[Rfam]
Shown here is a 110-nucleotide sequence from Methylomusa anaerophila, a member of the family "TPP riboswitch aptamer (THI element)". Its family is annotated with thiamine pyrophosphate binding in the Gene Ontology. The source organism's lineage runs through Bacteria, Bacillota, Selenomonadales, Sporomusaceae and Methylomusa. Rfam describes the family as follows. Vitamin B(1) in its active form thiamin pyrophosphate (TPP) is an essential coenzyme that is synthesised by coupling of pyrimidine and thiazole moieties in bacteria. The previously detected thiamin-regulatory element, thi box was extended, resulting in a new, highly conserved RNA secondary structure, the THI element, which is widely distributed in eubacteria and also occurs in some archaea. Analysis of operon structures identified a large number of new candidate thiamin-regulated genes, mostly transporters, in various prokaryotic organisms.
Nucleotides: 110
Stems, first nucleotide, its partner, number of pairs: 006098002009095001011061004016055001017031005039053003066091004072085004
Number, partner (000 for none) and nucleotide at each position: 001000u002000a003000u004000g005000u006098c007097g008000g009095c010000c011061g012060a013059g014058g015000g016055a017031g018030c019029u020028c021027a022000u023000g024000u025000u026000a027021u028020g029019g030018g031017c032000u033000g034000a035000g036000a037000g038000u039053g040052g041051a042000a043000c044000u045000a046000a047000a048000g049000a050000g051041u052040u053039c054000c055016u056000g057000a058014c059013c060012u061011c062000u063000a064000g065000a066091c067090c068089u069088g070000a071000a072085c073084g074083g075082g076000a077000u078000a079000a080000u081000g082075c083074c084073c085072g086000c087000g088069u089068a090067g091066g092000a093000a094000a095009g096000g097007c098006g099000u100000u101000a102000a103000u104000u105000u106000g107000a108000g109000a110000u